This 88-nucleotide RNA from Rattus norvegicus belongs to the Rfam family "mir-3473 microRNA precursor family".
Lineage of the source: Eukaryota > Chordata > Euarchontoglires > Rodentia > Rattus.
[Rfam]
RNA sequence: ACCACUGAGCCAUCUCUCCAGCCCUCAAUCUUUUUUGAAAUACAAAAAAAGGAGGAGGAAGAGGGAGCUGGAGAGAUGGCUCAGUGGU
Numbered sequence: 001a002c003c004a005c006u007g008a009g010c011c012a013u014c015u016c017u018c019c020a021g022c023c024c025u026c027a028a029u030c031u032u033u034u035u036u037g038a039a040a041u042a043c044a045a046a047a048a049a050a051g052g053a054g055g056a057g058g059a060a061g062a063g064g065g066a067g068c069u070g071g072a073g074a075g076a077u078g079g080c081u082c083a084g085u086g087g088u
Base pairs, nucleotide, nucleotide: 002087003086004085005084006083007082008081009080010079011078012077013076014075015074016073017072018071019070020069021068022067024065025064026063